[Rfam]
The family of this 109-nucleotide RNA sequence from Micromonospora sp. KC723 is "TPP riboswitch aptamer (THI element)". Pairs were carried over by alignment from the consensus structure, which is taken from published work. The organism belongs to Micromonospora, within Bacteria. The match comes from Rfam's covariance-model search (64 bits).
Nucleotides: 109
Base pairs, nucleotide, nucleotide: 009094010093011060012059013058014057017032018031019030020029021028039054040053041052042051043050065090066089067088068087071084072083073082074081
Number, partner (000 for none) and nucleotide at each position: 001000c002000a003000a004000g005000u006000g007000a008000c009094c010093c011060a012059c013058g014057g015000g016000a017032g018031c019030c020029c021028g022000g023000u024000g025000c026000a027000c028021c029020g030019g031018g032017c033000u034000g035000a036000g037000a038000g039054g040053g041052g042051g043050g044000c045000u046000g047000a048000a049000g050043c051042c052041c053040c054039c055000g056000a057014c058013c059012g060011u061000c062000g063000a064000a065090c066089c067088u068087g069000a070000u071084c072083c073082g074081g075000g076000u077000a078000a079000u080000g081074c082073c083072g084071g085000c086000g087068c088067a089066g090065g091000g092000a093010g094009g095000a096000g097000a098000g099000u100000u101000g102000c103000c104000g105000u106000g107000c108000c109000g